[Rfam]
RNA sequence: CCGCCCGUCGCACCUACCGAUUGAAUGGUCCGGUGAAACCUCCGGAUUGCCUGGCCCCUGCGGCCAGCGCGAGAAGUUGGUUAAACCUUACCAUUUAGAGGAAGGUGAAGUCGUAACAAGGUUUCCGUAGGUGAACCUGCAGAAGGAUCAAAG
Numbered sequence: 001c002c003g004c005c006c007g008u009c010g011c012a013c014c015u016a017c018c019g020a021u022u023g024a025a026u027g028g029u030c031c032g033g034u035g036a037a038a039c040c041u042c043c044g045g046a047u048u049g050c051c052u053g054g055c056c057c058c059u060g061c062g063g064c065c066a067g068c069g070c071g072a073g074a075a076g077u078u079g080g081u082u083a084a085a086c087c088u089u090a091c092c093a094u095u096u097a098g099a100g101g102a103a104g105g106u107g108a109a110g111u112c113g114u115a116a117c118a119a120g121g122u123u124u125c126c127g128u129a130g131g132u133g134a135a136c137c138u139g140c141a142g143a144a145g146g147a148u149c150a151a152a153g
Stems, first nucleotide, its partner, number of pairs: 001120001003117001006113002009110001011107005017101002021097001023096007032087003037082004043076001047072004051067006122145004127140005

The family of this 153-nucleotide part of an RNA from uncultured picobiliphyte is "Eukaryotic small subunit ribosomal RNA". Pairs were carried over by alignment from the consensus structure, which is taken from published work. The source organism's lineage runs through Eukaryota and Picozoa. The literature on the family includes a 2001 paper in Science by Yusupov et al., "Crystal structure of the ribosome at 5.5 A resolution".